Rfam assigns this 121-nucleotide RNA sequence to the family "DUF3268 RNA". Pairs were carried over by alignment from the consensus structure, which is taken from published work. Rfam's curators put it in the seed alignment.
RNA sequence: AGUAAGGGUUGGCGCCCAGGCUUUCGGUACAUCGGAAGAGCUCCCGGUGGUUGACUUGUCCAGAGAGGACAGGGAAUCGUUACGAAUUUGCGCACUGAGUGAAUUCCUAAUGGCGCUGCUC
Numbered sequence: 001a002g003u004a005a006g007g008g009u010u011g012g013c014g015c016c017c018a019g020g021c022u023u024u025c026g027g028u029a030c031a032u033c034g035g036a037a038g039a040g041c042u043c044c045c046g047g048u049g050g051u052u053g054a055c056u057u058g059u060c061c062a063g064a065g066a067g068g069a070c071a072g073g074g075a076a077u078c079g080u081u082a083c084g085a086a087u088u089u090g091c092g093c094a095c096u097g098a099g100u101g102a103a104u105u106c107c108u109a110a111u112g113g114c115g116c117u118g119c120u121c
Base pairs, nucleotide, nucleotide: 007121008120010118011117012116013115014114015113016112025079026078027077028076030049031048032047033046034045035044055073056072057071058070059069060068061067084106085105086104088102089101090100091099